Small nucleolar RNA SNORD59: a 70-nucleotide RNA from Stegastes partitus. Lineage of the source: Eukaryota > Metazoa > Osteoglossocephalai > Euacanthomorphacea > Stegastes. Its Rfam clan is "SNORD59 clan". It scores 61 bits against the family's covariance model. On this family, see Galardi et al., Mol Cell Biol 2002: "Purified box C/D snoRNPs are able to reproduce site-specific 2'-O-methylation of target RNA in vitro". The family's RNA type in Rfam is C/D-box small nucleolar RNA.
[Rfam]
RNA sequence: UCUUCAGUGAGUAGACAGUGACCUUUGUUCUUCUGAGUUUGCUGAAGCCACAAUUUCUGUCCUGGGAAGA
Numbered sequence: 001u002c003u004u005c006a007g008u009g010a011g012u013a014g015a016c017a018g019u020g021a022c023c024u025u026u027g028u029u030c031u032u033c034u035g036a037g038u039u040u041g042c043u044g045a046a047g048c049c050a051c052a053a054u055u056u057c058u059g060u061c062c063u064g065g066g067a068a069g070a
Stems, first nucleotide, its partner, number of pairs: 001070003005066001